The family of this 83-nucleotide RNA is "chrB-a RNA". The family has 163 seed sequences and 347 matches in Rfam 15.1. The family's RNA type in Rfam is cis-regulatory element.
RNA sequence: AUCAUGGGGAUUGCGAGCUCCCCACGAGGCGCCAGCCGAAGAUCGCGUUCCUGUUCAACCCCGGCGACGGAGGAACGCACAUG
Numbered sequence: 001a002u003c004a005u006g007g008g009g010a011u012u013g014c015g016a017g018c019u020c021c022c023c024a025c026g027a028g029g030c031g032c033c034a035g036c037c038g039a040a041g042a043u044c045g046c047g048u049u050c051c052u053g054u055u056c057a058a059c060c061c062c063g064g065c066g067a068c069g070g071a072g073g074a075a076c077g078c079a080c081a082u083g
Stems, first nucleotide, its partner, number of pairs: 005024006045078008